Record summary: A member of the RNA family "U7 small nuclear RNA" from Drosophila persimilis, 67 nucleotides long. Taxonomically the source falls in Sophophora (Eukaryota, Altocrustacea, Muscomorpha, Eremoneura). Pairs were carried over by alignment from the consensus structure, which was predicted with PFOLD.

RNA sequence: AAAUUUUUAAUCUCUUUGAAAUUUAUCUUGGUGGGACCCUUUUGUCAAGGCAAUUGAGUGUUCCCGA
Numbered sequence: 001a002a003a004u005u006u007u008u009a010a011u012c013u014c015u016u017u018g019a020a021a022u023u024u025a026u027c028u029u030g031g032u033g034g035g036a037c038c039c040u041u042u043u044g045u046c047a048a049g050g051c052a053a054u055u056g057a058g059u060g061u062u063c064c065c066g067a
Stems, first nucleotide, its partner, number of pairs: 033064005039058003042053003
Rfam 15.1 lists 10,439 matches to the family in 569 species.
It is one of the family's seed sequences.
From the family's description: Animal histone pre-mRNAs are spliced by a different mechanism than nuclear pre-mRNAs and self-splicing introns. This processing involves the U7 snRNP, which contains only one RNA species: U7. The 5' end of U7 RNA is thought to base-pair to a conserved spacer element downstream of the cleavage site in histone pre-mRNA. This family contains a number of annotated U7 pseudogenes.